A member of the RNA family "c-di-AMP riboswitch aptamer (ydaO/yuaA leader)" from Streptomyces sp. TverLS-915, 178 nucleotides long.
The organism belongs to Streptomyces, within Bacteria.
It scores 56 bits against the family's covariance model.

RNA sequence: UCGCGUCAUGCGCCGAAGGCAGGAGCGGGGGAACCAAGGUUUGCGUCCCAGCCGGCGCCCGGGAGACCGGGCGCCGGUCCGGGGCUAGGGGUGAAGCCGGGCGGCAGCCGCCGUCCGGCCGGGCAACUCACAGGCCCGAACCCGACAGCUCACCUCGUAGGCGUCGGUGAGGAGACCC
Numbered sequence: 001u002c003g004c005g006u007c008a009u010g011c012g013c014c015g016a017a018g019g020c021a022g023g024a025g026c027g028g029g030g031g032a033a034c035c036a037a038g039g040u041u042u043g044c045g046u047c048c049c050a051g052c053c054g055g056c057g058c059c060c061g062g063g064a065g066a067c068c069g070g071g072c073g074c075c076g077g078u079c080c081g082g083g084g085c086u087a088g089g090g091g092u093g094a095a096g097c098c099g100g101g102c103g104g105c106a107g108c109c110g111c112c113g114u115c116c117g118g119c120c121g122g123g124c125a126a127c128u129c130a131c132a133g134g135c136c137c138g139a140a141c142c143c144g145a146c147a148g149c150u151c152a153c154c155u156c157g158u159a160g161g162c163g164u165c166g167g168u169g170a171g172g173a174g175a176c177c178c
Base pairs, nucleotide, nucleotide: 011163012162013161014160025158026157027156028155029154030153035088089143090142091141097118098117099116100115101114102113103112121137122136123135124134